A member of the RNA family "tRNA" from Mobilitalea sibirica, 86 nucleotides long. The family's RNA type in Rfam is transfer RNA. Transfer RNA (tRNA) molecules are approximately 80 nucleotides in length. It scores 59 bits against the family's covariance model. The organism belongs to Mobilitalea, within Bacteria.

RNA sequence: GGAGAGAUGCCCGAGCGGCUUAAGGGGCUGGUCUUGAAAACCAGUGAUUCUGAAAGGAACCGUGGGUUCGAAUCCCACUCUCUCCG
Numbered sequence: 001g002g003a004g005a006g007a008u009g010c011c012c013g014a015g016c017g018g019c020u021u022a023a024g025g026g027g028c029u030g031g032u033c034u035u036g037a038a039a040a041c042c043a044g045u046g047a048u049u050c051u052g053a054a055a056g057g058a059a060c061c062g063u064g065g066g067u068u069c070g071a072a073u074c075c076c077a078c079u080c081u082c083u084c085c086g
Base pairs, nucleotide, nucleotide: 001085002084003083004082005081006080007079010026011025012024028044029043030042031041032040062078063077064076065075066074